[Rfam]
RNA: Small nucleolar RNA SNORA26
Organism: Onychostoma macrolepis
RNA sequence: AGCCCCUUUUAUUGGAUGUUCAAGUCCUAUUAUCUUGAAUUAUCAAGACAGGGGGGGCAGAUGAAAUCUCUCAAAAACCUGAAGUAUUGGCUUAAUAUUCCUUGCUUCGGAUCCUGUCGGGAGAAACAAUU
Numbered sequence: 001a002g003c004c005c006c007u008u009u010u011a012u013u014g015g016a017u018g019u020u021c022a023a024g025u026c027c028u029a030u031u032a033u034c035u036u037g038a039a040u041u042a043u044c045a046a047g048a049c050a051g052g053g054g055g056g057g058c059a060g061a062u063g064a065a066a067u068c069u070c071u072c073a074a075a076a077a078c079c080u081g082a083a084g085u086a087u088u089g090g091c092u093u094a095a096u097a098u099u100c101c102u103u104g105c106u107u108c109g110g111a112u113c114c115u116g117u118c119g120g121g122a123g124a125a126a127c128a129a130u131u
Stems, first nucleotide, its partner, number of pairs: 002058009015044004020039001022036003068123005079110007089101002